[Rfam]
RNA sequence: GAUGUGUUGUUGCCAUGGUAAUCCUGAUCAGUAUGAGAGGAACCGCAGGUUCAGACAUUUGGUGUAUGUGCUUGGCUGAGGAGCCAAUGGGGCGAAGCUACCAUCUGUGGGAUUAUGACUGAACGCUUCUAAGUCAGAAUCCCACCCAGGCGGAACGAUACGGCAGCACCGCGGGAGCCUCGGUUGGUCUCGGCUAGCGGGCGCCCCGCCAUUCGCCACUGGCGCCGGGGGUCCGUCCACCGUCCGCCGCGCGUUGGGACUGGGGUGCCGGUGCGGAGAGCUGCUCGUCCCUGGACACGGGGCACGGCCUGAAAGGCGGCCGCCCCCUCACCCGUCACGCACCGCACAUUCGUGGGGCGCCUUGUGCUAAACCAUUCAUAGACAACCUGCUUCUGGGUCGGGGUUUCAUACGUAGCAGAGCAGCUUCCUCGCUGCGAUCUAUUGAAAGUCAGCCCUCAACACAAGGGUUUGU
Numbered sequence: 001g002a003u004g005u006g007u008u009g010u011u012g013c014c015a016u017g018g019u020a021a022u023c024c025u026g027a028u029c030a031g032u033a034u035g036a037g038a039g040g041a042a043c044c045g046c047a048g049g050u051u052c053a054g055a056c057a058u059u060u061g062g063u064g065u066a067u068g069u070g071c072u073u074g075g076c077u078g079a080g081g082a083g084c085c086a087a088u089g090g091g092g093c094g095a096a097g098c099u100a101c102c103a104u105c106u107g108u109g110g111g112a113u114u115a116u117g118a119c120u121g122a123a124c125g126c127u128u129c130u131a132a133g134u135c136a137g138a139a140u141c142c143c144a145c146c147c148a149g150g151c152g153g154a155a156c157g158a159u160a161c162g163g164c165a166g167c168a169c170c171g172c173g174g175g176a177g178c179c180u181c182g183g184u185u186g187g188u189c190u191c192g193g194c195u196a197g198c199g200g201g202c203g204c205c206c207c208g209c210c211a212u213u214c215g216c217c218a219c220u221g222g223c224g225c226c227g228g229g230g231g232u233c234c235g236u237c238c239a240c241c242g243u244c245c246g247c248c249g250c251g252c253g254u255u256g257g258g259a260c261u262g263g264g265g266u267g268c269c270g271g272u273g274c275g276g277a278g279a280g281c282u283g284c285u286c287g288u289c290c291c292u293g294g295a296c297a298c299g300g301g302g303c304a305c306g307g308c309c310u311g312a313a314a315g316g317c318g319g320c321c322g323c324c325c326c327c328u329c330a331c332c333c334g335u336c337a338c339g340c341a342c343c344g345c346a347c348a349u350u351c352g353u354g355g356g357g358c359g360c361c362u363u364g365u366g367c368u369a370a371a372c373c374a375u376u377c378a379u380a381g382a383c384a385a386c387c388u389g390c391u392u393c394u395g396g397g398u399c400g401g402g403g404u405u406u407c408a409u410a411c412g413u414a415g416c417a418g419a420g421c422a423g424c425u426u427c428c429u430c431g432c433u434g435c436g437a438u439c440u441a442u443u444g445a446a447a448g449u450c451a452g453c454c455c456u457c458a459a460c461a462c463a464a465g466g467g468u469u470u471g472u
Stems, first nucleotide, its partner, number of pairs: 006159006013152001016148003021051001023049004052107004060100003067094003071090001072087006109143003116136005166365003171360002369470005375389001395462001397460002400457001401455003405448002412442004417438001420435005
Dot-bracket structure: .....((((((.(..(((..(.((((...................)))).)((((....(((....(((.(((((((....))))))..).)))...)))...)))).(((....(((((...........)))))....)))..)))...).))))))......(((..((..........................................................................................................................................................................................))..)))...(((((.(.............).....(.((.((((.((.....((((.(..(((((......)))))..)))))....))....))).).)).)...)))))..
Shown here is a 472-nucleotide part of an RNA from Galemys pyrenaicus, a member of the family "Eukaryotic large subunit ribosomal RNA". Gene Ontology terms of the family: structural constituent of ribosome and ribosome.